[Rfam]
RNA sequence: CGAACACGCUAGGGGUGCCUCACCGAGGCUGAGAGCAUACCCUCGGAACCUGAACCGGGUAGUACCGGCGGAGGGAAGCGUGGAUACGGGCAG
Numbered sequence: 001c002g003a004a005c006a007c008g009c010u011a012g013g014g015g016u017g018c019c020u021c022a023c024c025g026a027g028g029c030u031g032a033g034a035g036c037a038u039a040c041c042c043u044c045g046g047a048a049c050c051u052g053a054a055c056c057g058g059g060u061a062g063u064a065c066c067g068g069c070g071g072a073g074g075g076a077a078g079c080g081u082g083g084a085u086a087c088g089g090g091c092a093g
Base pairs, nucleotide, nucleotide: 006081007080008079009078010077011043012042013041014040016037017029018028019027020026021025049074050073051072055068056067057066058065
RNA: TPP riboswitch aptamer (THI element)